[Rfam]
RNA: Short Intergenic Abundant RNA
Nucleotides: 130
Base pairs, nucleotide, nucleotide: 012126013125014124015123018122019121020120021119022118023117026043027042028041045094046093047092048091095116096115097114098113099112100111101110
Number, partner (000 for none) and nucleotide at each position: 001000a002000c003000c004000u005000a006000a007000a008000g009000u010000a011000a012126a013125g014124g015123a016000a017000c018122a019121a020120g021119g022118g023117u024000g025000a026043g027042g028041g029000a030000g031000g032000a033000u034000u035000u036000c037000u038000c039000c040000c041028c042027c043026c044000u045094c046093u047092g048091a049000u050000u051000g052000g053000c054000u055000g056000u057000u058000a059000a060000u061000a062000a063000g064000c065000u066000g067000c068000g069000a070000a071000a072000c073000u074000u075000a076000c077000g078000a079000g080000u081000a082000a083000c084000a085000a086000c087000a088000c089000a090000a091048u092047c093046a094045g095116u096115a097114u098113g099112a100111u101110g102000a103000c104000g105000a106000g107000c108000u109000u110101c111100a112099u113098c114097a115096u116095a117023a118022c119021c120020c121019u122018u123015u124014c125013c126012u127000u128000a129000u130000a